[Rfam]
RNA sequence: UUAACUCAAAUUCUUAUGCAUUUGGAACGUUUGGCUACGUUUGUCGCUAAGGGCGCUGUUCCAACUUCAUAUAAAUUUGAGUUA
Numbered sequence: 001u002u003a004a005c006u007c008a009a010a011u012u013c014u015u016a017u018g019c020a021u022u023u024g025g026a027a028c029g030u031u032u033g034g035c036u037a038c039g040u041u042u043g044u045c046g047c048u049a050a051g052g053g054c055g056c057u058g059u060u061c062c063a064a065c066u067u068c069a070u071a072u073a074a075a076u077u078u079g080a081g082u083u084a
Base pairs, nucleotide, nucleotide: 008078009077010076011075012074015071016070018068020066022064023063024062025061026060027059028058029057035051036050039047040046
Dot-bracket structure: .......(((((..((.(.(.((((((((.....((..((.....))..)).....)))))))).).).))..)))))......

Source information
A member of the RNA family "mir-2807 microRNA precursor family" from Bombyx mori, 84 nucleotides long. Taxonomically the source falls in Bombyx (Eukaryota, Lepidoptera, Glossata, Obtectomera). Rfam links the family to the GO terms RISC complex and miRNA-mediated post-transcriptional gene silencing. The match comes from Rfam's covariance-model search (78 bits).